[Rfam]
RNA sequence: UGCAAGGAUGAUGAAGAAAUCAUUCGGAUUCCCACUGAUGUAUAUACGUGAUUACUACAACCAGCUACUUCUGACUUCA
Numbered sequence: 001u002g003c004a005a006g007g008a009u010g011a012u013g014a015a016g017a018a019a020u021c022a023u024u025c026g027g028a029u030u031c032c033c034a035c036u037g038a039u040g041u042a043u044a045u046a047c048g049u050g051a052u053u054a055c056u057a058c059a060a061c062c063a064g065c066u067a068c069u070u071c072u073g074a075c076u077u078c079a
Base pairs, nucleotide, nucleotide: 001079002078004077005076006075
Shown here is a 79-nucleotide RNA sequence from Solanum commersonii, a member of the family "Small nucleolar RNA R12". On this family, see Chen et al., Nucleic Acids Res 2003: "The high diversity of snoRNAs in plants: identification and comparative study of 120 snoRNA genes from Oryza sativa". Gene Ontology terms of the family: nucleolus and RNA processing. snoR12 is a C/D box small nucleolar RNA, which acts as a methylation guide for 25S ribosomal RNA in plants. snoR12 has been alternatively named snoZ44 in Arabidopsis and snoZ131 in rice. A search with the family's covariance model found it, with a score of 61 bits. Rfam 15.1 lists 992 matches to the family in 220 species. The source organism's lineage runs through Eukaryota, asterids, lamiids, Solanaceae and Solanum.